[Rfam]
RNA sequence: UGCUCUGAGAAACCAAGCAUGGGUGUGGCCUGAGAGACAAAUAUGGCGACCCAUCCUUAGUUUCUCAGGUCC
Numbered sequence: 001u002g003c004u005c006u007g008a009g010a011a012a013c014c015a016a017g018c019a020u021g022g023g024u025g026u027g028g029c030c031u032g033a034g035a036g037a038c039a040a041a042u043a044u045g046g047c048g049a050c051c052c053a054u055c056c057u058u059a060g061u062u063u064c065u066c067a068g069g070u071c072c
Stems, first nucleotide, its partner, number of pairs: 002071001004069004009064005016057002021052004028047003
A member of the RNA family "mir-551 microRNA precursor family" from Sparus aurata, 72 nucleotides long. NCBI's taxonomy places the organism under Eukaryota, Teleostei, Osteoglossocephalai, Eupercaria, Sparus. Gene Ontology terms of the family: RISC complex and miRNA-mediated post-transcriptional gene silencing. A reference for the family is Murchison et al. (2008), "Conservation of small RNA pathways in platypus", Genome Res. A search with the family's covariance model found it, with a score of 54 bits.